RNA sequence: CCCCGGAGAAUAAACUCCGGGAACACAGACUCAAAAAAUUAAGAUAAGUAGUAUAAAUGAACGAACAUGUUUCAAUA
Numbered sequence: 001c002c003c004c005g006g007a008g009a010a011u012a013a014a015c016u017c018c019g020g021g022a023a024c025a026c027a028g029a030c031u032c033a034a035a036a037a038a039u040u041a042a043g044a045u046a047a048g049u050a051g052u053a054u055a056a057a058u059g060a061a062c063g064a065a066c067a068u069g070u071u072u073c074a075a076u077a
Stems, first nucleotide, its partner, number of pairs: 002021007059072004
This 77-nucleotide RNA from Wolffia australiana belongs to the Rfam family "Plastid-rpl20 3UTR RNA". Plastid rpl20 is a non-coding RNA (ncRNA) recognised in plastids. It was found in the three prime untranslated region (3UTR) of rpl20 gene, it presence in the 3UTR region sugest a role in transcript maduration. Rfam 15.1 lists 587 matches to the family in 315 species. For this family Rfam cites "Retrograde signaling in plants: A critical review focusing on the GUN pathway and beyond" (Richter et al., Plant Commun, 2023). The source organism's lineage runs through Eukaryota, Streptophyta, Embryophyta, Liliopsida and Wolffia.